[Rfam]
RNA sequence: UCAUCAGCUUUAAUCAUGCAGAGCUGAAGAGCGGGCCUGCAAAGGGUCACCCGCUAGUCCCGAGCCCGACUCGGGGCGACACCCUCAAAUUGCCUGGAACUCCCGCCAAGCCCCUGGUACCGUUGUCAAUGGGAAACUGUUGAUUACACUUCGAUGAAAGUCGAAGGCAUGGUAAAAAUCCAGUGGGAUAGGGAUGAUGGGCAGCCAAGCCCUAAGGGGGCCUACUACGGUAGGUCUCUAUGGGUGCAGUUCACAGACUAAAUGUGGGUGGGCUUGACUGAUACCCUAUCAGAGUUUCAAACACAAAAGCAAAGCAAACGCUAAAUCCUCGCUAAAGUCAGGAACUUCUUCUUCAAAAAGCUAAAAAGGAACCUCCAAAUUUCUAGAGCAUGAGAUGCCACGUGUACUGCCACGUCAGCAUAUUGCCACGUCAGCGGUGACGUGGAGCCAUAUCACUUCCAGCUGGGCAAUCACCUUUUCUGUUUGCUUGAAACUCUGAGAACAUCAGUAAAGUUUAAGAUAUAGUCGGCCCCCUCCGAGAGGAGAGC
Numbered sequence: 001u002c003a004u005c006a007g008c009u010u011u012a013a014u015c016a017u018g019c020a021g022a023g024c025u026g027a028a029g030a031g032c033g034g035g036c037c038u039g040c041a042a043a044g045g046g047u048c049a050c051c052c053g054c055u056a057g058u059c060c061c062g063a064g065c066c067c068g069a070c071u072c073g074g075g076g077c078g079a080c081a082c083c084c085u086c087a088a089a090u091u092g093c094c095u096g097g098a099a100c101u102c103c104c105g106c107c108a109a110g111c112c113c114c115u116g117g118u119a120c121c122g123u124u125g126u127c128a129a130u131g132g133g134a135a136a137c138u139g140u141u142g143a144u145u146a147c148a149c150u151u152c153g154a155u156g157a158a159a160g161u162c163g164a165a166g167g168c169a170u171g172g173u174a175a176a177a178a179u180c181c182a183g184u185g186g187g188a189u190a191g192g193g194a195u196g197a198u199g200g201g202c203a204g205c206c207a208a209g210c211c212c213u214a215a216g217g218g219g220g221c222c223u224a225c226u227a228c229g230g231u232a233g234g235u236c237u238c239u240a241u242g243g244g245u246g247c248a249g250u251u252c253a254c255a256g257a258c259u260a261a262a263u264g265u266g267g268g269u270g271g272g273c274u275u276g277a278c279u280g281a282u283a284c285c286c287u288a289u290c291a292g293a294g295u296u297u298c299a300a301a302c303a304c305a306a307a308a309g310c311a312a313a314g315c316a317a318a319c320g321c322u323a324a325a326u327c328c329u330c331g332c333u334a335a336a337g338u339c340a341g342g343a344a345c346u347u348c349u350u351c352u353u354c355a356a357a358a359a360g361c362u363a364a365a366a367a368g369g370a371a372c373c374u375c376c377a378a379a380u381u382u383c384u385a386g387a388g389c390a391u392g393a394g395a396u397g398c399c400a401c402g403u404g405u406a407c408u409g410c411c412a413c414g415u416c417a418g419c420a421u422a423u424u425g426c427c428a429c430g431u432c433a434g435c436g437g438u439g440a441c442g443u444g445g446a447g448c449c450a451u452a453u454c455a456c457u458u459c460c461a462g463c464u465g466g467g468c469a470a471u472c473a474c475c476u477u478u479u480c481u482g483u484u485u486g487c488u489u490g491a492a493a494c495u496c497u498g499a500g501a502a503c504a505u506c507a508g509u510a511a512a513g514u515u516u517a518a519g520a521u522a523u524a525g526u527c528g529g530c531c532c533c534c535u536c537c538g539a540g541a542g543g544a545g546a547g548c
Base pairs, nucleotide, nucleotide: 005026006025007024008023009022010021011020031040032039080270081269082268083267084266086264087263091203092202093201094200095199096198101194102193103192104191204250205249209245210244211243212242217238218237219236220235221234222233223232254528256527257526258525259524260523272514273513274512275511277509278508279507280506281505282504534545535544536543537542